[Rfam]
RNA sequence: UAAGUAAGCCAGAUGAUCGCAUGCGUUUGCAUGAGGAAAGUCCGAGCUCCAAAGGGCAGGGUGCUGGGUAAUACCCAGUGGGGGCAACCCCAAGGAUAGUGCAACAGAGAUAUACCGCCAGAACUCUUUUUCGGUGUAACAACUGAGCAUGUAGUGAAAUAGUCCAUAGAAGGGGCUAUCUGGUAAGGGUGGAAAGGCGAGGUAAGAGCUCACCAGCAGCUAGGCGACUAGCUGGCUAUGUAAACCCCAUCUGGAGCAAGACCAAGUAGGGACUAGAAAAGGCGGCUGCCCGUCGCCAUCCCAAAGGUAGGUCGCUGGAACCUAUUGGCAACAUUAGGUCUAGAUAGAUGAUCGUCUAAUACAGAACUCGGCUUAUAGACUUACUUAAUAC
Numbered sequence: 001u002a003a004g005u006a007a008g009c010c011a012g013a014u015g016a017u018c019g020c021a022u023g024c025g026u027u028u029g030c031a032u033g034a035g036g037a038a039a040g041u042c043c044g045a046g047c048u049c050c051a052a053a054g055g056g057c058a059g060g061g062u063g064c065u066g067g068g069u070a071a072u073a074c075c076c077a078g079u080g081g082g083g084g085c086a087a088c089c090c091c092a093a094g095g096a097u098a099g100u101g102c103a104a105c106a107g108a109g110a111u112a113u114a115c116c117g118c119c120a121g122a123a124c125u126c127u128u129u130u131u132c133g134g135u136g137u138a139a140c141a142a143c144u145g146a147g148c149a150u151g152u153a154g155u156g157a158a159a160u161a162g163u164c165c166a167u168a169g170a171a172g173g174g175g176c177u178a179u180c181u182g183g184u185a186a187g188g189g190u191g192g193a194a195a196g197g198c199g200a201g202g203u204a205a206g207a208g209c210u211c212a213c214c215a216g217c218a219g220c221u222a223g224g225c226g227a228c229u230a231g232c233u234g235g236c237u238a239u240g241u242a243a244a245c246c247c248c249a250u251c252u253g254g255a256g257c258a259a260g261a262c263c264a265a266g267u268a269g270g271g272a273c274u275a276g277a278a279a280a281g282g283c284g285g286c287u288g289c290c291c292g293u294c295g296c297c298a299u300c301c302c303a304a305a306g307g308u309a310g311g312u313c314g315c316u317g318g319a320a321c322c323u324a325u326u327g328g329c330a331a332c333a334u335u336a337g338g339u340c341u342a343g344a345u346a347g348a349u350g351a352u353c354g355u356c357u358a359a360u361a362c363a364g365a366a367c368u369c370g371g372c373u374u375a376u377a378g379a380c381u382u383a384c385u386u387a388a389u390a391c
Stems, first nucleotide, its partner, number of pairs: 001387008010378001011376001012356007020033005038374003042371005047256004054291004059252005064078005079093001080091004094247002099245002101241003115188002117184006196214002199211003216236001217234007260313004270301003282296005320339005326333002
The record is a 391-nucleotide RNA from Proteiniborus ethanoligenes, which matches "Bacterial RNase P class A" in Rfam. Pairs were carried over by alignment from the consensus structure, which is taken from published work. From the family's description: Ribonuclease P (RNase P) is a ubiquitous endoribonuclease, found in archaea, bacteria and eukarya as well as chloroplasts and mitochondria.